[Rfam]
Nucleotides: 179
Base pairs, nucleotide, nucleotide: 005140006139009136010135011134012133014131015130016128021124028123029122038113040111042109046105048103050101051100052099054097055075056074057073058072059071060070061069062068082096083095084094085093086092146178147177149174151172152171154165155164156163157162
Number, partner (000 for none) and nucleotide at each position: 001000u002000c003000c004000g005140c006139a007000g008000g009136g010135c011134g012133u013000g014131u015130u016128u017000c018000a019000a020000u021124a022000c023000g024000a025000u026000a027000u028123u029122g030000c031000c032000g033000a034000a035000g036000c037000u038113c039000a040111c041000g042109c043000c044000c045000u046105u047000c048103a049000g050101c051100c052099g053000g054097g055075c056074g057073g058072u059071g060070c061069g062068g063000a064000u065000g066000u067000a068062u069061u070060g071059c072058g073057c074056c075055g076000u077000c078000a079000u080000c081000a082096c083095c084094u085093c086092g087000g088000u089000c090000a091000u092086c093085g094084a095083g096082g097054c098000g099052c100051g101050g102000g103048u104000c105046a106000u107000g108000c109042g110000g111040g112000c113038g114000a115000u116000a117000u118000a119000g120000c121000c122029c123028a124021u125000c126000c127000c128016g129000u130015a131014g132000a133012g134011c135010g136009c137000g138000a139006u140005g141000g142000u143000c144000a145000g146178g147177a148000c149174c150000g151172g152171c153000a154165g155164c156163a157162g158000g159000a160000a161000g162157u163156u164155g165154u166000u167000c168000a169000g170000c171152g172151u173000g174149g175000c176000c177147u178146c179000g
Ruegeria cis52 sRNA: a 179-nucleotide RNA sequence from Seohaeicola zhoushanensis. The family's consensus secondary structure was predicted with RNAfold. Its family is annotated with regulation of gene expression in the Gene Ontology. The family's RNA type in Rfam is small RNA.